[Rfam]
RNA sequence: UCCCCCACAGUCCUCCGACUCUCGUUUUCCGCAAGGAAUGUCUAUCGCAGACCCCCCUCCCAGGCUGGUUAACCCACAAUAUGCCGCUCUCGAGCCUGUAUCAGGAACUCGUUGAAUGCCGCAGGUGCUUCUAUUGUGGUCUACACUGUCGUCCGUGACGGGACGGCCCAGCCUAGCCGGGGGAACGAGUUUCGGAACUUAACCCUAAGAAGAUAU
Numbered sequence: 001u002c003c004c005c006c007a008c009a010g011u012c013c014u015c016c017g018a019c020u021c022u023c024g025u026u027u028u029c030c031g032c033a034a035g036g037a038a039u040g041u042c043u044a045u046c047g048c049a050g051a052c053c054c055c056c057c058u059c060c061c062a063g064g065c066u067g068g069u070u071a072a073c074c075c076a077c078a079a080u081a082u083g084c085c086g087c088u089c090u091c092g093a094g095c096c097u098g099u100a101u102c103a104g105g106a107a108c109u110c111g112u113u114g115a116a117u118g119c120c121g122c123a124g125g126u127g128c129u130u131c132u133a134u135u136g137u138g139g140u141c142u143a144c145a146c147u148g149u150c151g152u153c154c155g156u157g158a159c160g161g162g163a164c165g166g167c168c169c170a171g172c173c174u175a176g177c178c179g180g181g182g183g184a185a186c187g188a189g190u191u192u193c194g195g196a197a198c199u200u201a202a203c204c205c206u207a208a209g210a211a212g213a214u215a216u
Stems, first nucleotide, its partner, number of pairs: 009199003015195004
RNA: Ascomycota telomerase RNA, nucleotides 13 to 228